[Rfam]
RNA sequence: UUUGCAUCUAUGAUGAUAUUCUAACUUCGUUAUCCUUGCACUUUGAUUUAUAAUGAAGAGAACCAUGGGGAAAGUAAUUCUGAGAUGCUU
Numbered sequence: 001u002u003u004g005c006a007u008c009u010a011u012g013a014u015g016a017u018a019u020u021c022u023a024a025c026u027u028c029g030u031u032a033u034c035c036u037u038g039c040a041c042u043u044u045g046a047u048u049u050a051u052a053a054u055g056a057a058g059a060g061a062a063c064c065a066u067g068g069g070g071a072a073a074g075u076a077a078u079u080c081u082g083a084g085a086u087g088c089u090u
Stems, first nucleotide, its partner, number of pairs: 004088005
The record is a 90-nucleotide RNA sequence from Centaurea solstitialis, which matches "Small nucleolar RNA snoR26" in Rfam. A search with the family's covariance model found it, with a score of 69 bits. Taxonomically the source falls in Centaurea (Eukaryota, Embryophyta, Euphyllophyta, Magnoliopsida).